[Rfam]
RNA sequence: CCUCUUUUCUCCGGAGGGCGCAGCGACUAUGUUUUGCCUGUCUCGCAAGAGACUAUGGACAUAAACGCGCUCGUAAUAAGCGGCUCGGACCCGGGGGCGGUACCCGGCGGCUCCACCAAUCAUCCGCUCGUUGGGGGAUCUUGGGGCCGAAAUAGGAUCGACGAACGUCUAAAGGGGUGGCUUUGUCCCGGUGAGGUACCACCGUUAUCGGUCCGUAAAGCAUAGUUGCCAACGACAAUCAUGCUCCGGUUGCAGUUGCCGCGUAAGCGGUAACGAGACCGAAAUCUAAGUCCACUCCCCUAGCAGGGUUUGGCGGGGUUCGCAGGCACCUGGCAACAGAAGCCUGCACU
Number, nucleotide and partner (000 for none) at each position: 001c000002c000003u000004c000005u000006u000007u000008u000009c000010u000011c000012c000013g000014g000015a000016g000017g000018g000019c000020g000021c000022a000023g000024c000025g000026a000027c000028u000029a000030u000031g000032u000033u000034u000035u000036g000037c000038c000039u000040g053041u052042c051043u050044c049045g000046c000047a000048a000049g044050a043051g042052a041053c040054u000055a000056u000057g188058g187059a186060c185061a184062u000063a000064a000065a000066c000067g181068c180069g178070c177071u176072c175073g000074u000075a000076a000077u000078a000079a000080g000081c167082g166083g000084c000085u164086c163087g162088g000089a000090c000091c107092c106093g105094g104095g103096g000097g000098c000099g000100g000101u000102a000103c095104c094105c093106g092107g091108c149109g148110g147111c146112u145113c144114c143115a000116c000117c000118a000119a000120u000121c000122a000123u000124c000125c000126g000127c000128u000129c000130g000131u000132u000133g000134g000135g000136g000137g000138a000139u000140c000141u000142u000143g114144g113145g112146g111147c110148c109149g108150a000151a000152a000153u000154a000155g000156g000157a000158u000159c000160g000161a000162c087163g086164a085165a000166c082167g081168u000169c000170u000171a000172a000173a000174g000175g072176g071177g070178u069179g000180g068181c067182u000183u000184u061185g060186u059187c058188c057189c204190g203191g202192u201193g000194a000195g214196g213197u000198a212199c211200c210201a192202c191203c190204g189205u000206u000207a000208u000209c000210g200211g199212u198213c196214c195215g000216u000217a000218a000219a000220g000221c000222a000223u000224a000225g000226u000227u000228g000229c000230c000231a000232a000233c000234g000235a000236c000237a000238a000239u000240c000241a000242u000243g000244c000245u000246c000247c000248g000249g000250u000251u000252g000253c000254a000255g000256u000257u000258g000259c000260c000261g000262c000263g000264u000265a000266a000267g000268c000269g000270g000271u000272a000273a000274c000275g000276a000277g000278a000279c000280c000281g000282a000283a000284a000285u000286c000287u000288a000289a000290g000291u000292c000293c000294a000295c000296u000297c000298c000299c000300c000301u000302a000303g000304c000305a000306g000307g000308g000309u000310u000311u000312g000313g000314c000315g000316g331317g330318g329319u328320u000321c000322g347323c346324a345325g344326g343327c342328a319329c318330c317331u316332g000333g000334c000335a000336a000337c000338a000339g000340a000341a000342g327343c326344c325345u324346g323347c322348a000349c000350u000
Shown here is a 350-nucleotide sequence from Roseivivax halodurans, a member of the family "Alphaproteobacteria transfer-messenger RNA". The family's consensus secondary structure is taken from published work. NCBI's taxonomy places the organism under Bacteria, Rhodobacterales, Roseobacteraceae, Roseivivax, Roseivivax halodurans.